[Rfam]
RNA sequence: GAAAAGAAAAAAAAAUAACCAAAUUUGAGCAUCAAGGGUCUUCCAGUCUCCUUACUGCAUUAUUUCUAUAGUUUUCUAAAA
Numbered sequence: 001g002a003a004a005a006g007a008a009a010a011a012a013a014a015a016u017a018a019c020c021a022a023a024u025u026u027g028a029g030c031a032u033c034a035a036g037g038g039u040c041u042u043c044c045a046g047u048c049u050c051c052u053u054a055c056u057g058c059a060u061u062a063u064u065u066c067u068a069u070a071g072u073u074u075u076c077u078a079a080a081a
Base pairs, nucleotide, nucleotide: 029058030057031056036049037048038047039046